[Rfam]
RNA sequence: AAAGGAGCAAUAACCCCUUUCUUGUUCUAUCAAGAAGGGGGUUAUUAGUCU
Number, nucleotide and partner (000 for none) at each position: 001a000002a000003a000004g051005g050006a049007g000008c000009a046010a045011u044012a043013a042014c041015c000016c000017c000018u000019u037020u035021c034022u033023u032024g031025u000026u000027c000028u000029a000030u000031c024032a023033a022034g021035a020036a000037g019038g000039g000040g000041g014042u013043u012044a011045u010046u009047a000048g000049u006050c005051u004
Rfam assigns this 51-nucleotide sequence to the family "Plastid-psbA-3 3UTR RNA". The literature on the family includes a 2023 paper in Plant Commun by Richter et al., "Retrograde signaling in plants: A critical review focusing on the GUN pathway and beyond". The sequence is in the family's curated seed alignment. Clan: Plastid-psbA 3UTR RNA clan. Plastid psbA-3 is a non-coding RNA (ncRNA) present in plastids. It was identified in inverted repeat sequences in the 3 prime untranslate region (3UTR) of photosystem II quinone-binding protein (psbA).